[Rfam]
Nucleotides: 979
Stems, first nucleotide, its partner, number of pairs: 008903004018890006025882001027880003031876003035872006045861003052853002056851006065842003071837003076832011096815006110808002113805003117801006126792003136783007146765005152759001154757002164749007175740004181734004186729006194719001196717004205710006218696008231688008245675008258665005263659001264657002270653002273650003277646001279642003283638001287635006294628001295305004306617003310613002313610005321602003325598007340586003345582005353572005358566004364560001367557001369555002372552005378546004386535005391440006400433005405427010442530007450522003453514004459509001461507009473498005916972005923965002928959003931955003934951006
Number, partner (000 for none) and nucleotide at each position: 001000u002000a003000a004000c005000c006000a007000u008903u009902g010901a011900u012000g013000g014000a015000a016000u017000u018890c019889u020888a021887u022886u023885g024000u025882u026000a027880u028879c029878c030000c031876u032875a033874g034000c035872u036871u037870c038869u039868g040867a041000a042000a043000g044000g045861g046860g047859a048000a049000u050000c051000c052853a053852u054000a055000a056851g057850c058849a059848u060847a061846g062000g063000c064000a065842a066841u067840c068000a069000a070000g071837a072836u073835a074000u075000g076832a077831u078830u079829u080828u081827g082826u083825u084824u085823c086822g087000c088000u089000a090000a091000a092000u093000u094000u095000u096815u097814u098813u099812u100811u101810c102000u103000a104000a105000u106000u107000u108000u109000g110808u111807c112000u113805u114804u115803c116000u117801u118800u119799u120798u121797u122796u123000u124000u125000c126792u127791u128790u129000c130000u131000u132000u133000u134000a135000c136783u137782c138781u139780u140779c141778u142777u143000u144000u145000g146765u147764u148763a149762a150761a151000c152759a153000g154757a155756u156000a157000u158000u159000g160000a161000u162000u163000a164749u165748a166747u167746u168745g169744u170743a171000u172000a173000u174000u175740c176739a177738g178737u179000u180000a181734u182733g183732c184731g185000g186729u187728g188727u189726a190725c191724c192000u193000g194719u195000u196717c197716a198715u199714u200000u201000u202000a203000a204000c205710u206709u207708u208707g209706g210705a211000u212000u213000u214000a215000u216000g217000u218696g219695u220694c221693u222692c223691a224690u225689u226000a227000u228000u229000a230000a231688c232687a233686u234685g235684c236683u237682c238681g239000u240000u241000u242000u243000u244000u245675g246674u247673a248672a249671u250670a251669g252668u253000c254000a255000a256000a257000c258665a259664a260663a261662g262661a263659a264657u265656u266000c267000u268000g269000a270653u271652a272000g273650c274649g275648u276000g277646g278000u279642g280641g281640a282000u283638g284000g285000a286000a287635u288634g289633a290632g291631u292630g293000a294628a295305u296304u297303u298302c299000a300000g301000u302298g303297g304296g305295g306617a307616g308615a309000a310613a311612u312000a313610u314609u315608u316607a317606g318000c319000u320000a321602g322601g323600g324000u325598a326597g327596g328595g329594a330593u331592g332000c333000g334000a335000g336000a337000a338000g339000a340586g341585a342584a343000a344000u345582g346581g347580a348579u349578a350000u351000a352000g353572a354571a355570g356569g357568c358566g359565u360564a361563a362000a363000a364560g365000u366000u367557u368000a369555a370554a371000g372552g373551g374550g375549a376548a377000c378546g379545g380544g381543u382000g383000g384000u385000u386535u387534u388533u389532c390531c391440g392439c393438u394437u395436g396435g397000c398000u399000g400433u401432a402431u403430a404429g405427c406426a407425u408424g409423a410422u411421u412420g413419a414418g415000u416000u417000u418414u419413u420412c421411a422410g423409u424408c425407g426406u427405g428000u429404c430403u431402a432401u433400g434000u435396u436395c437394a438393g439392g440391u441000u442530u443529a444528u445527g446526a447525u448524a449000g450522a451521c452520u453514g454513u455512g456511g457000u458000u459509g460000a461507u462506u463505c464504u465503g466502u467501u468500a469499a470000u471000u472000u473498c474497a475496c476495a477494c478000g479000u480000u481000u482000c483000a484000c485000u486000u487000c488000c489000a490000u491000a492000a493000a494477g495476u496475g497474u498473g499469u500468u501467g502466a503465c504464a505463g506462a507461a508000a509459c510000u511456c512455c513454g514453c515000g516000u517000u518000a519000a520452g521451g522450u523000u524448u525447a526446u527445u528444a529443u530442a531390g532389g533388g534387a535386a536000u537000u538000c539000u540000u541000u542000u543381a544380u545379u546378u547000u548376u549375u550374u551373u552372c553000u554370u555369u556000u557367g558000u559000u560364c561000u562000u563361u564360u565359a566358u567000u568357g569356u570355c571354u572353u573000a574000g575000u576000g577000a578349u579348g580347u581346u582345u583000c584342u585341u586340u587000u588000u589000u590000c591000u592331c593330a594329u595328u596327u597326c598325u599000a600323u601322c602321u603000u604000u605000u606317c607316u608315g609314a610313a611000a612311a613310u614000g615308u616307c617306u618000u619000c620000g621000c622000a623000c624000u625000g626000g627000c628294u629000c630292c631291a632290c633289u634288u635287g636000u637000g638283c639000u640281u641280u642279c643000c644000a645000u646277u647000g648275a649274u650273g651000u652271u653270a654000u655000u656265a657264g658000a659263u660000u661262u662261u663260u664259u665258u666000g667000a668252g669251c670250u671249g672248u673247u674246g675245c676000u677000u678000g679000u680000u681238c682237g683236g684235g685234u686233a687232u688231g689225g690224a691223u692222g693221a694220g695219g696218c697000u698000u699000c700000a701000u702000u703000a704000u705210u706209c707208u708207a709206a710205a711000c712000u713000u714199g715198a716197u717196g718000g719194a720000u721000c722000a723000u724191g725190g726189u727188g728187c729186a730000c731184u732183g733182c734181a735000c736000u737178g738177u739176u740175g741000a742000c743170u744169g745168c746167g747166a748165u749164g750000c751000a752000u753000g754000a755000g756155a757154u758000a759152u760000a761150u762149u763148u764147a765146a766000a767000u768000g769000g770000g771000g772000a773000a774000g775000c776000c777142g778141a779140g780139a781138g782137g783136a784000a785000a786000a787000u788000c789000a790128a791127a792126a793000a794000a795000c796122g797121a798120a799119g800118a801117a802000u803115g804114g805113a806000u807111g808110a809000u810101g811100a812099g813098a814097a815096a816000u817000u818000g819000a820000a821000a822086u823085g824084g825083a826082a827081c828080a829079a830078g831077a832076u833000a834000c835073u836072a837071u838000u839000g840067g841066g842065u843000u844000g845000g846061u847060u848059g849058u850057g851056c852053g853052u854000a855000u856000g857000u858000g859047u860046u861045u862000c863000a864000c865000u866000a867040u868039u869038g870037g871036a872035a873000c874033u875032u876031g877000a878029g879028g880027a881000u882025a883000c884000u885023c886022g887021a888020u889019g890018g891000u892000u893000u894000a895000c896000a897000g898000a899000a900011g901010u902009c903008a904000u905000a906000a907000a908000u909000u910000u911000a912000a913000a914000u915000a916972u917971c918970c919969c920968g921000u922000c923965u924964a925000a926000u927000c928959g929958c930957u931955c932954a933953u934951c935950u936949a937948u938947u939946a940000a941000a942000u943000c944000a945000a946939u947938a948937g949936u950935a951934g952000a953933a954932u955931g956000u957930a958929g959928u960000u961000u962000c963000a964924u965923a966000u967000c968920c969919g970918g971917g972916a973000g974000a975000a976000a977000u978000g979000u